[Rfam]
RNA sequence: UCGUGUGUGAAGGAGUGGUUUUACUGAAACAGUGGAAACAAGGAAACACUUGAUUUAGUAAAACCAUAAA
Dot-bracket structure: ...............((((((..((....(((((............))).))....))..))))))....
Record summary
The family of this 70-nucleotide RNA is "Cyano-1 RNA". Rfam classes the family as a small RNA. Rfam's curators put it in the seed alignment.